[Rfam]
RNA sequence: CCCGGUACGCCGGGACGAAAUGUGGCCGCCUCCGGCGGCUGAAUCGCAAG
Numbered sequence: 001c002c003c004g005g006u007a008c009g010c011c012g013g014g015a016c017g018a019a020a021u022g023u024g025g026c027c028g029c030c031u032c033c034g035g036c037g038g039c040u041g042a043a044u045c046g047c048a049a050g
Base pairs, nucleotide, nucleotide: 001014002013003012004011005010016046017045018044024040025039026038027037028036
RNA: eL15-Euryarchaeota ribosomal protein leader